About this RNA
Shown here is a 101-nucleotide RNA from Neorhizobium sp. SOG26, a member of the family "TPP riboswitch aptamer (THI element)". Pairs were carried over by alignment from the consensus structure, which is taken from published work. Vitamin B(1) in its active form thiamin pyrophosphate (TPP) is an essential coenzyme that is synthesised by coupling of pyrimidine and thiazole moieties in bacteria. The match comes from Rfam's covariance-model search (73 bits). Its family is annotated with thiamine pyrophosphate binding in the Gene Ontology.

[Rfam]
RNA sequence: UCCGCUCUAACGGGGUGCCGCUGAUCGCGGCUGAGAGGCUUGGCCAACCCGCGGAACCUGAUCCGGUUAACACCGGCGGAGGGAUUAGACGGCUCUUGAUC
Numbered sequence: 001u002c003c004g005c006u007c008u009a010a011c012g013g014g015g016u017g018c019c020g021c022u023g024a025u026c027g028c029g030g031c032u033g034a035g036a037g038g039c040u041u042g043g044c045c046a047a048c049c050c051g052c053g054g055a056a057c058c059u060g061a062u063c064c065g066g067u068u069a070a071c072a073c074c075g076g077c078g079g080a081g082g083g084a085u086u087a088g089a090c091g092g093c094u095c096u097u098g099a100u101c
Base pairs, nucleotide, nucleotide: 006089007088008087009086010085011051012050013049014048017031018030019029020028021027038044039043057082058081059080063076064075065074066073
Dot-bracket structure: .....(((((((((..(((((.....)))))......((...))...)))).....(((...((((......))))...)))..)))))............